A member of the RNA family "mir-1 microRNA precursor family" from Pristionchus pacificus, 82 nucleotides long.

[Rfam]
RNA sequence: UUCACCGUUCCGUACUUCUUUGCAGCCCCAUACUUGCCCGCAUGAAGUGGUUAUGGAAUGUAAAGAAGUAUGUAAUGGUCGA
Numbered sequence: 001u002u003c004a005c006c007g008u009u010c011c012g013u014a015c016u017u018c019u020u021u022g023c024a025g026c027c028c029c030a031u032a033c034u035u036g037c038c039c040g041c042a043u044g045a046a047g048u049g050g051u052u053a054u055g056g057a058a059u060g061u062a063a064a065g066a067a068g069u070a071u072g073u074a075a076u077g078g079u080c081g082a
Stems, first nucleotide, its partner, number of pairs: 007076003011072014028056005
The sequence is in the family's curated seed alignment. The family has 137 seed sequences and 4,474 matches in Rfam 15.1. The base pairs follow the family's consensus structure, which was predicted with RNAalifold.